[Rfam]
RNA sequence: CCGAGCAGGGAUCGCCACCAGUCAGCGCGUUGCGCCCACUGGUGCAUUUGUC
Numbered sequence: 001c002c003g004a005g006c007a008g009g010g011a012u013c014g015c016c017a018c019c020a021g022u023c024a025g026c027g028c029g030u031u032g033c034g035c036c037c038a039c040u041g042g043u044g045c046a047u048u049u050g051u052c
Stems, first nucleotide, its partner, number of pairs: 016044007025035004
ffh sRNA: a 52-nucleotide sequence from Oceanicola sp. 22II-s10i. The literature on the family includes a 2009 paper in BMC Genomics by Meyer et al., "Identification of candidate structured RNAs in the marine organism 'Candidatus Pelagibacter ubique'".